[Rfam]
Background: c-di-AMP riboswitch aptamer (ydaO/yuaA leader): a 149-nucleotide RNA sequence from Actinoallomurus iriomotensis. Gene Ontology terms of the family: regulation of gene expression and cyclic-di-AMP binding.

RNA sequence: ACAGACCGACCGCCGAAUCCGGCUGCACCCCCAGUGCAGCGGGAACCGGGGACCCACGAAGUCCCUUGGGGUGAAUCCGUCUCGCACGGUAGGGCUCCUCCUGGCCCGAACCCGUCAGCUAACCCGGUAGGCGGCUUAAGGGGAGACAU
Numbered sequence: 001a002c003a004g005a006c007c008g009a010c011c012g013c014c015g016a017a018u019c020c021g022g023c024u025g026c027a028c029c030c031c032c033a034g035u036g037c038a039g040c041g042g043g044a045a046c047c048g049g050g051g052a053c054c055c056a057c058g059a060a061g062u063c064c065c066u067u068g069g070g071g072u073g074a075a076u077c078c079g080u081c082u083c084g085c086a087c088g089g090u091a092g093g094g095c096u097c098c099u100c101c102u103g104g105c106c107c108g109a110a111c112c113c114g115u116c117a118g119c120u121a122a123c124c125c126g127g128u129a130g131g132c133g134g135c136u137u138a139a140g141g142g143g144a145g146a147c148a149u
Base pairs, nucleotide, nucleotide: 011133012132013131014130018044019043020042045128046127047126048125049124050123055068056067069113070112071111077089078088079087080086092107093106094105095104